This 225-nucleotide RNA from Nitratireductor pacificus belongs to the Rfam family "FMN riboswitch aptamer (RFN element)". It scores 92 bits against the family's covariance model. Lineage of the source: Bacteria > Pseudomonadati > Hyphomicrobiales > Nitratireductor > Nitratireductor pacificus.
RNA sequence: GCCCGUUCUCAGGGCGGGGUGAAAGUCCCCACCGGCGGUAUGCGGCACGAGCCGCGAGCCCGCGAGCGCCUUCCCGGAUCACCGUGCCUCCAUUCGGAGGCACAAUGGAUGGUCCAGACCAGCGACGGAUCUCGGUCCGAUGCGCCGGCCGAUAACCGGGAAGGGUCAGCAGACCAGGUGCGAUGCCUGGGCCGACGGUCACAGUCCGGAUGAGAGAGAACGUGC
Numbered sequence: 001g002c003c004c005g006u007u008c009u010c011a012g013g014g015c016g017g018g019g020u021g022a023a024a025g026u027c028c029c030c031a032c033c034g035g036c037g038g039u040a041u042g043c044g045g046c047a048c049g050a051g052c053c054g055c056g057a058g059c060c061c062g063c064g065a066g067c068g069c070c071u072u073c074c075c076g077g078a079u080c081a082c083c084g085u086g087c088c089u090c091c092a093u094u095c096g097g098a099g100g101c102a103c104a105a106u107g108g109a110u111g112g113u114c115c116a117g118a119c120c121a122g123c124g125a126c127g128g129a130u131c132u133c134g135g136u137c138c139g140a141u142g143c144g145c146c147g148g149c150c151g152a153u154a155a156c157c158g159g160g161a162a163g164g165g166u167c168a169g170c171a172g173a174c175c176a177g178g179u180g181c182g183a184u185g186c187c188u189g190g191g192c193c194g195a196c197g198g199u200c201a202c203a204g205u206c207c208g209g210a211u212g213a214g215a216g217a218g219a220a221c222g223u224g225c
Stems, first nucleotide, its partner, number of pairs: 004222007017029003031205002033194002035063004058192002066170002174190005196208003